[Rfam]
Nucleotides: 267
Stems, first nucleotide, its partner, number of pairs: 001267006009058003012030004017025001019023001035055005064260003069256003074251005081245005087239004094232002098229005106222002108219003116214009125202006131193002134191005140183005150175003158167003
Number, partner (000 for none) and nucleotide at each position: 001267c002266c003265g004264u005263g006262c007000u008000a009058g010057a011056u012030g013029g014028g015027g016000a017025g018000g019023u020000a021000g022000c023019g024000g025017u026000g027015c028014c029013c030012u031000g032000u033000a034000a035055c036054c037053u038052g039051c040000a041000a042000u043000c044000c045000g046000c047000u048000c049000u050000a051039g052038c053037a054036g055035g056011a057010u058009u059000g060000a061000a062000u063000u064260c065259c066258c067000a068000u069256g070255c071254u072000u073000a074251g075250g076249c077248u078247u079000u080000a081245u082244g083243c084242c085241u086000g087239u088238g089237a090236g091000g092000a093000c094232u095231g096000g097000c098229c099228u100227g101226c102225a103000c104000a105000a106222g107221u108219g109218g110217u111000g112000u113000a114000g115000a116214u117213c118212a119211u120210u121209g122208g123207g124206u125202c126201c127200u128199g129198c130197g131193c132192a133000a134191c135190g136189g137188a138187a139000c140183c141182u142181c143180a144179u145000a146000a147000a148000c149000c150175c151174c152173g153000c154000c155000a156000g157000g158167u159166c160165c161000g162000g163000a164000a165160g166159g167158a168000a169000g170000c171000a172000a173152c174151g175150g176000u177000a178000a179144g180143u181142g182141a183140g184000c185000c186000c187138u188137u189136u190135c191134g192132u193131g194000u195000g196000c197130c198129g199128c200127g201126g202125g203000g204000c205000a206124a207123c208122c209121u210120g211119a212118u213117g214116g215000g216000a217110g218109c219108u220000a221107a222106c223000u224000a225102u226101g227100c228099a229098g230000a231095u232094a233000c234000c235000g236090c237089u238088c239087g240000g241085a242084g243083g244082c245081a246000u247078g248077a249076g250075u251074c252000g253000a254071a255070g256069c257000u258066g259065g260064g261000u262006g263005c264004a265003c266002g267001g
This 267-nucleotide RNA sequence from Mahella australiensis belongs to the Rfam family "Bacterial large signal recognition particle RNA".
For this family Rfam cites "SRPDB: Signal Recognition Particle Database" (Rosenblad et al., Nucleic Acids Res, 2003).
The organism belongs to Mahella australiensis, within Bacteria.
Rfam links the family to the GO terms SRP-dependent cotranslational protein targeting to membrane, signal sequence recognition and signal recognition particle, plasma membrane targeting.
The signal recognition particle (SRP) is a universally conserved ribonucleoprotein involved in the co-translational targeting of proteins to membranes.
By type it is a non-coding RNA gene.
Its Rfam clan is "SRP clan".